[Rfam]
The family of this 74-nucleotide RNA from Eptesicus fuscus is "mir-339 microRNA precursor family". Rfam links the family to the GO terms miRNA-mediated post-transcriptional gene silencing and RISC complex. The source organism's lineage runs through Eukaryota, Bilateria, Chordata, Theria and Eptesicus. For this family Rfam cites "Altered expression profiles of microRNAs during TPA-induced differentiation of HL-60 cells" (Kasashima et al., Biochem Biophys Res Commun, 2004).
RNA sequence: AGCCGCGCUCCCUGUCCUCCAGGAGCUCACCUGCGUCCGGCCGUGAGCGCCUCGGGGCCAGAGCCCGCGUCUGC
Numbered sequence: 001a002g003c004c005g006c007g008c009u010c011c012c013u014g015u016c017c018u019c020c021a022g023g024a025g026c027u028c029a030c031c032u033g034c035g036u037c038c039g040g041c042c043g044u045g046a047g048c049g050c051c052u053c054g055g056g057g058c059c060a061g062a063g064c065c066c067g068c069g070u071c072u073g074c
Base pairs, nucleotide, nucleotide: 001072002071004069005068006067007066010063012061013060014059016057018055019054021052022051023050025048026047027046028045029044030043031040032039033038
The sequence is in the family's curated seed alignment.